[Rfam]
RNA sequence: AACCGCAUCAGCUGUUAGAAACUGCUAAACUCAACACUAACAACAUGCCGAGUAAGCUAUCUGUUUCAAGGACAGGCCUCACCCUUCGGGGUUAUCUUAGGAUACGGAGGAUCUUCGCGAAGUGGGUGCACUCAAAUUCCUGUUUAUAGGAGUUUAUUUAGUUCCCGGCUGGUGCGGCCCAAAUA
Numbered sequence: 001a002a003c004c005g006c007a008u009c010a011g012c013u014g015u016u017a018g019a020a021a022c023u024g025c026u027a028a029a030c031u032c033a034a035c036a037c038u039a040a041c042a043a044c045a046u047g048c049c050g051a052g053u054a055a056g057c058u059a060u061c062u063g064u065u066u067c068a069a070g071g072a073c074a075g076g077c078c079u080c081a082c083c084c085u086u087c088g089g090g091g092u093u094a095u096c097u098u099a100g101g102a103u104a105c106g107g108a109g110g111a112u113c114u115u116c117g118c119g120a121a122g123u124g125g126g127u128g129c130a131c132u133c134a135a136a137u138u139c140c141u142g143u144u145u146a147u148a149g150g151a152g153u154u155u156a157u158u159u160a161g162u163u164c165c166c167g168g169c170u171g172g173u174g175c176g177g178c179c180c181a182a183a184u185a
Stems, first nucleotide, its partner, number of pairs: 056129002060126008070116002077110004082091003094103003